[Rfam]
RNA sequence: GUACGAUAAAGGCACAAUUGCUGAAAAGCAAUGUCGCAAAGCUAUAGGGGCUAAAGUUCUACGAACUAUGCUAGCCAGCUACCGAA
Numbered sequence: 001g002u003a004c005g006a007u008a009a010a011g012g013c014a015c016a017a018u019u020g021c022u023g024a025a026a027a028g029c030a031a032u033g034u035c036g037c038a039a040a041g042c043u044a045u046a047g048g049g050g051c052u053a054a055a056g057u058u059c060u061a062c063g064a065a066c067u068a069u070g071c072u073a074g075c076c077a078g079c080u081a082c083c084g085a086a
Base pairs, nucleotide, nucleotide: 012037013036017032018031019030020029021028022027040080041079042078043077047076048075049072050071051070056066057065058064059063
Dot-bracket structure: ...........((...((((((....))))))...))..((((...(((((....((((...))))...)))..))))))......